RNA sequence: UACAUAGUAGGUGCAUAAUAAAGACUUGUUGAAUGAAAAAGUGAAUUAGAGCCUCAACAACCCAUUCCUUCAUUCAACAAGUCUUUAUUAAGCACCUACUAUGUA
Numbered sequence: 001u002a003c004a005u006a007g008u009a010g011g012u013g014c015a016u017a018a019u020a021a022a023g024a025c026u027u028g029u030u031g032a033a034u035g036a037a038a039a040a041g042u043g044a045a046u047u048a049g050a051g052c053c054u055c056a057a058c059a060a061c062c063c064a065u066u067c068c069u070u071c072a073u074u075c076a077a078c079a080a081g082u083c084u085u086u087a088u089u090a091a092g093c094a095c096c097u098a099c100u101a102u103g104u105a
Base pairs, nucleotide, nucleotide: 001105002104003103004102007099008098009097010096011095012094014092016090017089018088019087021085022084023083024082025081026080027079028078029077030076031075032074034072035071036070